[Rfam]
The record is a 94-nucleotide sequence from Branchiostoma belcheri, which matches "mir-2060 microRNA precursor family" in Rfam. The match comes from Rfam's covariance-model search (85 bits). Rfam 15.1 lists 3,696 matches to the family in 4 species. Its family is annotated with miRNA-mediated post-transcriptional gene silencing and RISC complex in the Gene Ontology. The source organism's lineage runs through Eukaryota, Opisthokonta, Chordata, Amphioxiformes and Branchiostoma.
RNA sequence: GUUUGCCUGUGUGUUGAUGGCGUUCAGCACCAUGAACAGAUGUGUUUGCCUGUGUGUGGAUGGCGUUCAGUACCAAGGACAGAUAUGUUUGCCU
Numbered sequence: 001g002u003u004u005g006c007c008u009g010u011g012u013g014u015u016g017a018u019g020g021c022g023u024u025c026a027g028c029a030c031c032a033u034g035a036a037c038a039g040a041u042g043u044g045u046u047u048g049c050c051u052g053u054g055u056g057u058g059g060a061u062g063g064c065g066u067u068c069a070g071u072a073c074c075a076a077g078g079a080c081a082g083a084u085a086u087g088u089u090u091g092c093c094u
Stems, first nucleotide, its partner, number of pairs: 004085002007082004018075003022071003026067003030063003034055001036053004041048002